Notes
Rfam assigns this 185-nucleotide sequence from Miscanthus lutarioriparius to the family "Small nucleolar RNA Z112". Clan: SNORD49 clan. Rfam classes the family as a C/D-box small nucleolar RNA.
RNA sequence: GUCCCAAUGAGGAUCUCAAGACCUACCGAUAGGAAGUGCCAUUUGACAAUGUAAACAACAGCUGCUUCUUUUCUGCUGCAAGUGUCUAUCCUUCGACCAUAACAUCUGAUCUGAUCUGGGAUGGAGCCCCAUCUGUAGUUGUUUAAUUCAGCUGUGGUGUGAUUUAAAUCGGGUCCCUGUGGGGU
Numbered sequence: 001g002u003c004c005c006a007a008u009g010a011g012g013a014u015c016u017c018a019a020g021a022c023c024u025a026c027c028g029a030u031a032g033g034a035a036g037u038g039c040c041a042u043u044u045g046a047c048a049a050u051g052u053a054a055a056c057a058a059c060a061g062c063u064g065c066u067u068c069u070u071u072u073c074u075g076c077u078g079c080a081a082g083u084g085u086c087u088a089u090c091c092u093u094c095g096a097c098c099a100u101a102a103c104a105u106c107u108g109a110u111c112u113g114a115u116c117u118g119g120g121a122u123g124g125a126g127c128c129c130c131a132u133c134u135g136u137a138g139u140u141g142u143u144u145a146a147u148u149c150a151g152c153u154g155u156g157g158u159g160u161g162a163u164u165u166a167a168a169u170c171g172g173g174u175c176c177c178u179g180u181g182g183g184g185u
Base pairs, nucleotide, nucleotide: 001185002184003183004182005181076138077137078136079135080134082132083131084130085125086124087123088122089121090120091119095116096115098113099112102110